[Rfam]
RNA sequence: CGUCGCUCAUUCAUCUUUUUAUGUCAGAACACAAUUUGUGGUGCUACAUAAGCCUUAGAAUGAUGCCAAAGCCAUGGUACCUAUCGUCUACCAACCCGAUAUUCACUGCUUCGGCAGCUUAUCAAACAUCAGACGACACGUUGAGUGAGGUGCCAGCCU
Numbered sequence: 001c002g003u004c005g006c007u008c009a010u011u012c013a014u015c016u017u018u019u020u021a022u023g024u025c026a027g028a029a030c031a032c033a034a035u036u037u038g039u040g041g042u043g044c045u046a047c048a049u050a051a052g053c054c055u056u057a058g059a060a061u062g063a064u065g066c067c068a069a070a071g072c073c074a075u076g077g078u079a080c081c082u083a084u085c086g087u088c089u090a091c092c093a094a095c096c097c098g099a100u101a102u103u104c105a106c107u108g109c110u111u112c113g114g115c116a117g118c119u120u121a122u123c124a125a126a127c128a129u130c131a132g133a134c135g136a137c138a139c140g141u142u143g144a145g146u147g148a149g150g151u152g153c154c155a156g157c158c159u
Base pairs, nucleotide, nucleotide: 005066006065007063008062009061010060011059012058019051020050021049022048023047024046026045027044076154077153078152079151080150081149082148085135086134087133088132089131098123099122100121101120137147138146139145
RNA: Glm Y RNA activator of glmS mRNA